[Rfam]
The record is a 99-nucleotide sequence from Lentivirus humimdef1, which matches "HIV primer binding site (PBS)" in Rfam. By type it is a cis-regulatory element. This family consists of several, structured HIV primer binding sites (PBSs). tRNA(3)(Lys) binds to the PBS to initiate reverse transcription. For this family Rfam cites "RNA interactions in the 5' region of the HIV-1 genome" (Damgaard et al., J Mol Biol, 2004). NCBI's taxonomy places the organism under Viruses, Pararnavirae, Ortervirales, Orthoretrovirinae, Lentivirus humimdef1.
RNA sequence: CUCUGGUAACUAGAGAUCCCUCAGACCCUUUUAGUCAGUGUGAAAAAUCUCUAGCAGUGGCGCCCAACGUGGGGCCGGAAAGCGAAAGAGAAACCGGAG
Numbered sequence: 001c002u003c004u005g006g007u008a009a010c011u012a013g014a015g016a017u018c019c020c021u022c023a024g025a026c027c028c029u030u031u032u033a034g035u036c037a038g039u040g041u042g043a044a045a046a047a048u049c050u051c052u053a054g055c056a057g058u059g060g061c062g063c064c065c066a067a068c069g070u071g072g073g074g075c076c077g078g079a080a081a082g083c084g085a086a087a088g089a090g091a092a093a094c095c096g097g098a099g
Stems, first nucleotide, its partner, number of pairs: 001099007010054008019042001020040001022038001024036003058087001061084002063073003075082001
Dot-bracket structure: (((((((..((((((((.((.(.(((.......))).).).)....))))))))...(..(((((.....))).(......)))..).....)))))))